The record is a 184-nucleotide RNA from Oryza sativa, which matches "MIR807 microRNA precursor family" in Rfam. The sequence is in the family's curated seed alignment. The literature on the family includes a 2006 paper in FEBS Lett by Luo et al., "Rice embryogenic calli express a unique set of microRNAs, suggesting regulatory roles of microRNAs in plant post-embryogenic development". Pairs were carried over by alignment from the consensus structure, which was predicted with WAR.
[Rfam]
RNA sequence: AACCACACUAUCAAUAAAUAGAUUCACCCGCGAGAUGACGUGACUAUUUCACUGUUUCAUCUAGGAUGAGGAUAUGGCAUCCUAUUACCAGCCAUCGCACAAAAUUAAUAGAAUGCCACGUCCUCAUCCUUAAUGGAACAACCACGUUAUCUCAUGGGUGAAUCCAUUCAUCGAUAGUGUGAUU
Number, nucleotide and partner (000 for none) at each position: 001a184002a183003c000004c181005a180006c179007a178008c000009u176010a175011u174012c173013a000014a171015u170016a000017a168018a167019u166020a000021g164022a163023u162024u161025c160026a159027c158028c157029c000030g155031c000032g153033a152034g000035a150036u149037g148038a147039c146040g000041u144042g143043a000044c000045u140046a000047u138048u137049u000050c000051a000052c000053u000054g000055u000056u000057u000058c000059a134060u133061c000062u000063a130064g000065g128066a127067u000068g000069a000070g000071g122072a121073u120074a000075u000076g000077g116078c115079a114080u113081c000082c111083u110084a109085u108086u107087a106088c000089c000090a000091g000092c000093c000094a105095u104096c000097g000098c000099a000100c000101a000102a000103a000104a095105u094106u087107a086108a085109u084110a083111g082112a000113a080114u079115g078116c077117c000118a000119c000120g073121u072122c071123c000124u000125c000126a000127u066128c065129c000130u063131u000132a000133a060134u059135g000136g000137a048138a047139c000140a045141a000142c000143c042144a041145c000146g039147u038148u037149a036150u035151c000152u033153c032154a000155u030156g000157g028158g027159u026160g025161a024162a023163u022164c021165c000166a019167u018168u017169c000170a015171u014172c000173g012174a011175u010176a009177g000178u007179g006180u005181g004182a000183u002184u001